[Rfam]
RNA sequence: GGUCUGUGAUGGGUUGGCAUGUAUUAUCUGAGCCUGAGUCUGAAGUGGUCAGUUUAACUCUCGAGUUGCUCUGAGACCCG
Numbered sequence: 001g002g003u004c005u006g007u008g009a010u011g012g013g014u015u016g017g018c019a020u021g022u023a024u025u026a027u028c029u030g031a032g033c034c035u036g037a038g039u040c041u042g043a044a045g046u047g048g049u050c051a052g053u054u055u056a057a058c059u060c061u062c063g064a065g066u067u068g069c070u071c072u073g074a075g076a077c078c079c080g
Base pairs, nucleotide, nucleotide: 001078002077003076004075
RNA: Small nucleolar RNA SNORD45